[Rfam]
Rfam assigns this 85-nucleotide RNA sequence from Neodiprion lecontei to the family "mir-263 microRNA precursor family". On this family, see Li et al., BMC Genomics 2009: "Direct sequencing and expression analysis of a large number of miRNAs in Aedes aegypti and a multi-species survey of novel mosquito miRNAs".
RNA sequence: UGGACUCUGUUAAUGGCACUGGAAGAAUUCACGGGGUAUAUUAUAGAACGAGCCCGUGGAGUUCCCGUGUCAUGUACAGCGUCCG
Numbered sequence: 001u002g003g004a005c006u007c008u009g010u011u012a013a014u015g016g017c018a019c020u021g022g023a024a025g026a027a028u029u030c031a032c033g034g035g036g037u038a039u040a041u042u043a044u045a046g047a048a049c050g051a052g053c054c055c056g057u058g059g060a061g062u063u064c065c066c067g068u069g070u071c072a073u074g075u076a077c078a079g080c081g082u083c084c085g
Stems, first nucleotide, its partner, number of pairs: 003083003007079004013073006021065002023062001029059006
Its family is annotated with RISC complex and miRNA-mediated post-transcriptional gene silencing in the Gene Ontology. The family is grouped with related families in Rfam's "mir-182 clan". It scores 63 bits against the family's covariance model. The family's consensus secondary structure was predicted with RNAalifold.